About this RNA
The record is a 222-nucleotide RNA sequence from Clostridium sp. CAG:411, which matches "permuted transfer-messenger RNA" in Rfam. It scores 74 bits against the family's covariance model.

RNA sequence: GAUACCAUUUUUAUGAUGUGGACGUUUUUGGACGUGGGUUCAACUCUCGUCAGCUCCACUGAAAGGCAGAUCGGUAUCAUCUGCUAAACCAAAACAACUUUAUGGGGUUGUAAUGGUUUCGACGGGGAUUUUGAAACUCGAGCAGCUAUCCGUGGCUCUGGGACCACGUAAAAACCUGGAUUAAAUAUAAACGCUGAAGAUAAUUUAGCAUUAGCUGCCUAA
Numbered sequence: 001g002a003u004a005c006c007a008u009u010u011u012u013a014u015g016a017u018g019u020g021g022a023c024g025u026u027u028u029u030g031g032a033c034g035u036g037g038g039u040u041c042a043a044c045u046c047u048c049g050u051c052a053g054c055u056c057c058a059c060u061g062a063a064a065g066g067c068a069g070a071u072c073g074g075u076a077u078c079a080u081c082u083g084c085u086a087a088a089c090c091a092a093a094a095c096a097a098c099u100u101u102a103u104g105g106g107g108u109u110g111u112a113a114u115g116g117u118u119u120c121g122a123c124g125g126g127g128a129u130u131u132u133g134a135a136a137c138u139c140g141a142g143c144a145g146c147u148a149u150c151c152g153u154g155g156c157u158c159u160g161g162g163a164c165c166a167c168g169u170a171a172a173a174a175c176c177u178g179g180a181u182u183a184a185a186u187a188u189a190a191a192c193g194c195u196g197a198a199g200a201u202a203a204u205u206u207a208g209c210a211u212u213a214g215c216u217g218c219c220u221a222a
Stems, first nucleotide, its partner, number of pairs: 001150004014140003024129003028125003034050005051110007151168004
NCBI's taxonomy places the organism under Bacteria, Bacillati, Bacillota, Clostridia, Clostridium. It is annotated as a non-coding RNA gene.